RNA: S15-Halobacteria ribosomal protein leader
RNA sequence: ACGGGAACAGCACGACCGCAAAUCCGACUCGUCGGCCGAUUGGUUGACUUGGGAUUGCGGUAGUGC
Numbered sequence: 001a002c003g004g005g006a007a008c009a010g011c012a013c014g015a016c017c018g019c020a021a022a023u024c025c026g027a028c029u030c031g032u033c034g035g036c037c038g039a040u041u042g043g044u045u046g047a048c049u050u051g052g053g054a055u056u057g058c059g060g061u062a063g064u065g066c
Base pairs, nucleotide, nucleotide: 010066011065012064013063015061016060017059018058019057020056021055024053025052031048032047033046034045035044036043037042